[Rfam]
RNA sequence: AGUACAAUGGCAUAAGGGCGGUCGGCUAAUCUCCCGGAAGGGAGGUAAUGCUAAUGGAGGUACACCAAGCUUUGACGUUAAUGAUUUCAUUUGCGACUUUGGUUGUGUUGAUACUUUCUUUCCAUAAAAGGAAAUAGACCGCCCCGGUAAGGAUUCGGUCUAUUUUUGAUCACCUUGCCAGCCAACCGCUCUUAUAGCGGAUUGUACUCUGGAGUCGUGUUAGCGCACGGCUC
Numbered sequence: 001a002g003u004a005c006a007a008u009g010g011c012a013u014a015a016g017g018g019c020g021g022u023c024g025g026c027u028a029a030u031c032u033c034c035c036g037g038a039a040g041g042g043a044g045g046u047a048a049u050g051c052u053a054a055u056g057g058a059g060g061u062a063c064a065c066c067a068a069g070c071u072u073u074g075a076c077g078u079u080a081a082u083g084a085u086u087u088c089a090u091u092u093g094c095g096a097c098u099u100u101g102g103u104u105g106u107g108u109u110g111a112u113a114c115u116u117u118c119u120u121u122c123c124a125u126a127a128a129a130g131g132a133a134a135u136a137g138a139c140c141g142c143c144c145c146g147g148u149a150a151g152g153a154u155u156c157g158g159u160c161u162a163u164u165u166u167u168g169a170u171c172a173c174c175u176u177g178c179c180a181g182c183c184a185a186c187c188g189c190u191c192u193u194a195u196a197g198c199g200g201a202u203u204g205u206a207c208u209c210u211g212g213a214g215u216c217g218u219g220u221u222a223g224c225g226c227a228c229g230g231c232u233c
Stems, first nucleotide, its partner, number of pairs: 001208005007202001008184004016144003020139001022137001027048001029046001031044005056118007070083001094110004147167001149165001186200004212233009
RNA: BsrG